The record is an 80-nucleotide RNA sequence from Esox lucius, which matches "mir-19 microRNA precursor family" in Rfam.
The family has 106 seed sequences and 2,337 matches in Rfam 15.1.
Its Rfam clan is "mir-19 clan".
Pairs were carried over by alignment from the consensus structure, which was predicted with RNAalifold.
The literature on the family includes a 2002 paper in Genes Dev by Mourelatos et al., "miRNPs: a novel class of ribonucleoproteins containing numerous microRNAs".
The source organism's lineage runs through Eukaryota, Craniata, Gnathostomata, Teleostomi and Esox.
RNA sequence: ACCCCUGGUCAGUUUUGCUGGCUUGCAUCCCGCUUUAACAAAUGUUUGCUGUGCAAAUCCAUGCAAAACUGACUUGGCGC
Number, nucleotide and partner (000 for none) at each position: 001a000002c000003c000004c077005c076006u000007g074008g073009u072010c071011a070012g069013u068014u067015u066016u065017g064018c063019u000020g060021g059022c000023u056024u055025g054026c053027a052028u051029c000030c000031c000032g049033c048034u000035u000036u000037a000038a000039c000040a000041a000042a000043u000044g000045u000046u000047u000048g033049c032050u000051g028052u027053g026054c025055a024056a023057a000058u000059c021060c020061a000062u000063g018064c017065a016066a015067a014068a013069c012070u011071g010072a009073c008074u007075u000076g005077g004078c000079g000080c000